A member of the RNA family "MIR1520 microRNA precursor family" from Glycine soja, 120 nucleotides long.
Rfam 15.1 lists 1,934 matches to the family in 15 species.
It scores 127 bits against the family's covariance model.

RNA sequence: UUUUGAUUGGAUGAUAACUGUCACGUGUCAUGUUCUGAUUAAAUGUCAACUCCAUGAAAGAUGAAAUGCAUUAUUGUUUCUAUUGACCAAUCAGAACAUGACACGUAACAGUCAUCAUCU
Dot-bracket structure: ...................((.(.((..(((.((((.(((................................................))).)))).)))..)).).))...........